A member of the RNA family "TPP riboswitch aptamer (THI element)" from Desulfurispira natronophila, 96 nucleotides long.
Its family is annotated with thiamine pyrophosphate binding in the Gene Ontology.

[Rfam]
RNA sequence: AGAAACCGUUGGGGGCGCUUUGACAACCAGGGCUGAGAUGUACCCCAUGAACCUGAUCCAGGUAAUGCUGGCGAAGGGAAACGGGUCACGUAUCAC
Numbered sequence: 001a002g003a004a005a006c007c008g009u010u011g012g013g014g015g016c017g018c019u020u021u022g023a024c025a026a027c028c029a030g031g032g033c034u035g036a037g038a039u040g041u042a043c044c045c046c047a048u049g050a051a052c053c054u055g056a057u058c059c060a061g062g063u064a065a066u067g068c069u070g071g072c073g074a075a076g077g078g079a080a081a082c083g084g085g086u087c088a089c090g091u092a093u094c095a096c
Stems, first nucleotide, its partner, number of pairs: 006084005011046004016040001017033005052077003058071004